RNA sequence: UCUGGUAAUGUUGUAGCAGCACAGAAUGGUUUGUGGUUACUCUGAGAUGCAGGCCAUACUGCGCUGCCGCAAUAAAGCCAGA
Numbered sequence: 001u002c003u004g005g006u007a008a009u010g011u012u013g014u015a016g017c018a019g020c021a022c023a024g025a026a027u028g029g030u031u032u033g034u035g036g037u038u039a040c041u042c043u044g045a046g047a048u049g050c051a052g053g054c055c056a057u058a059c060u061g062c063g064c065u066g067c068c069g070c071a072a073u074a075a076a077g078c079c080a081g082a
Stems, first nucleotide, its partner, number of pairs: 001082006013070002016067005022061003026057010
RNA: mir-15 microRNA precursor family
Organism: Cyprinodon variegatus